[Rfam]
RNA sequence: UGCUGGCGGAUGCCAGGGUCUGUGCCUGCCUAUGGAUGCUCAUCCUGAUGGGCCAGGCCGAAGCAGCAUUAG
Numbered sequence: 001u002g003c004u005g006g007c008g009g010a011u012g013c014c015a016g017g018g019u020c021u022g023u024g025c026c027u028g029c030c031u032a033u034g035g036a037u038g039c040u041c042a043u044c045c046u047g048a049u050g051g052g053c054c055a056g057g058c059c060g061a062a063g064c065a066g067c068a069u070u071a072g
Stems, first nucleotide, its partner, number of pairs: 006023006024067002027065003031061001034058001037055002
RNA: Hepatitis C virus stem-loop SL2531 and SL2549AU